[Rfam]
Shown here is a 76-nucleotide RNA from Ditylenchus dipsaci, a member of the family "mir-252 microRNA precursor family". The match comes from Rfam's covariance-model search (52 bits). Taxonomically the source falls in Ditylenchus (Eukaryota, Chromadorea, Tylenchomorpha, Anguininae). Rfam 15.1 lists 422 matches to the family in 306 species. Rfam links the family to the GO terms RISC complex and miRNA-mediated post-transcriptional gene silencing. A reference for the family is Li et al. (2009), "Direct sequencing and expression analysis of a large number of miRNAs in Aedes aegypti and a multi-species survey of novel mosquito miRNAs", BMC Genomics.

RNA sequence: AUAUCAUACUAAGUAGUUGUGCCGCAAGGUUUUUGGAAUUUCAAGAUAACCUGUCGCCGACUGCUUAAUAUGGUUC
Numbered sequence: 001a002u003a004u005c006a007u008a009c010u011a012a013g014u015a016g017u018u019g020u021g022c023c024g025c026a027a028g029g030u031u032u033u034u035g036g037a038a039u040u041u042c043a044a045g046a047u048a049a050c051c052u053g054u055c056g057c058c059g060a061c062u063g064c065u066u067a068a069u070a071u072g073g074u075u076c
Base pairs, nucleotide, nucleotide: 003074004073005072006071007070010067011066012065013064014063015062016061017060018059019058024054025053026052028051029050030049031048